RNA sequence: UGACCCUAACGGGUCACCUAGCCAACUGACGUUGUUAGUGAAUACAAUAUUCACAAAAUUACAGCCAAUAGACCGAUUUCUAUUGGCUAUUUUUUU
Numbered sequence: 001u002g003a004c005c006c007u008a009a010c011g012g013g014u015c016a017c018c019u020a021g022c023c024a025a026c027u028g029a030c031g032u033u034g035u036u037a038g039u040g041a042a043u044a045c046a047a048u049a050u051u052c053a054c055a056a057a058a059u060u061a062c063a064g065c066c067a068a069u070a071g072a073c074c075g076a077u078u079u080c081u082a083u084u085g086g087c088u089a090u091u092u093u094u095u096u
Stems, first nucleotide, its partner, number of pairs: 001016006032064004038054007065086008